[Rfam]
RNA sequence: CGCUGUGGAGGAUAGAGGAAGUCGCCGCGAGGCGGCUGGCCGAGAAAUUCAAC
Numbered sequence: 001c002g003c004u005g006u007g008g009a010g011g012a013u014a015g016a017g018g019a020a021g022u023c024g025c026c027g028c029g030a031g032g033c034g035g036c037u038g039g040c041c042g043a044g045a046a047a048u049u050c051a052a053c
Stems, first nucleotide, its partner, number of pairs: 020037007
RNA: leuA-Halobacteria RNA